[Rfam]
RNA sequence: AUACCUUCUCGGCCUUUUGGCUAAGAUCAAGUGUAGUAUCUGUUCUUAUCAGUGUGAAAACUGAUACUGUCCCUACUGGGACAUGUGGUUUCACAUUAAUUUUUCAAGGGGUCGGAUAUAUUAGUGGCUUGCCACUGGUCCCGACGCUGUUGCCCUUAGCAUGCACGUAACUAAGGAGUGGCUAACCCUAA
Numbered sequence: 001a002u003a004c005c006u007u008c009u010c011g012g013c014c015u016u017u018u019g020g021c022u023a024a025g026a027u028c029a030a031g032u033g034u035a036g037u038a039u040c041u042g043u044u045c046u047u048a049u050c051a052g053u054g055u056g057a058a059a060a061c062u063g064a065u066a067c068u069g070u071c072c073c074u075a076c077u078g079g080g081a082c083a084u085g086u087g088g089u090u091u092c093a094c095a096u097u098a099a100u101u102u103u104u105c106a107a108g109g110g111g112u113c114g115g116a117u118a119u120a121u122u123a124g125u126g127g128c129u130u131g132c133c134a135c136u137g138g139u140c141c142c143g144a145c146g147c148u149g150u151u152g153c154c155c156u157u158a159g160c161a162u163g164c165a166c167g168u169a170a171c172u173a174a175g176g177a178g179u180g181g182c183u184a185a186c187c188c189u190a191a
Stems, first nucleotide, its partner, number of pairs: 007026003011022004047066006068083006112144004119137001124135004149182004154176006

The family of this 191-nucleotide RNA from Tetrahymena thermophila is "U2 spliceosomal RNA".
Gene Ontology terms of the family: U2 snRNP, mRNA branch site recognition and pre-mRNA branch point binding.
Rfam's curators put it in the seed alignment.
Rfam describes the family as follows. U2 is a small nuclear RNA (snRNA) component of the spliceosome (involved in pre-mRNA splicing). Complementary binding between U2 snRNA (in an area lying towards the 5' end but 3' to hairpin I) and the branchpoint sequence (BPS) of the intron results the bulging out of an unpaired adenosine, on the BPS, which initiates a nucleophilic attack at the intronic 5' splice site, thus starting the first of two transesterification reactions that mediate splicing.
The source organism's lineage runs through Eukaryota, Alveolata, Hymenostomatida, Tetrahymenidae and Tetrahymena.
The base pairs follow the family's consensus structure, which is taken from published work.